[Rfam]
RNA sequence: UCCACCCUGCGUGACUGGCGAGUUCAGUGGGUUCACCACGAGGAAACGCGGGGUAUAUCUGGCGCAAUGCACAGUGCGCCUGCCGAUCGCCUGGGCAGCGAAU
Numbered sequence: 001u002c003c004a005c006c007c008u009g010c011g012u013g014a015c016u017g018g019c020g021a022g023u024u025c026a027g028u029g030g031g032u033u034c035a036c037c038a039c040g041a042g043g044a045a046a047c048g049c050g051g052g053g054u055a056u057a058u059c060u061g062g063c064g065c066a067a068u069g070c071a072c073a074g075u076g077c078g079c080c081u082g083c084c085g086a087u088c089g090c091c092u093g094g095g096c097a098g099c100g101a102a103u
Base pairs, nucleotide, nucleotide: 004054005053006052007051008050009049010048011047012046015043016042017091018090019089020088021087027039028038029037030036080098081097082096083095084094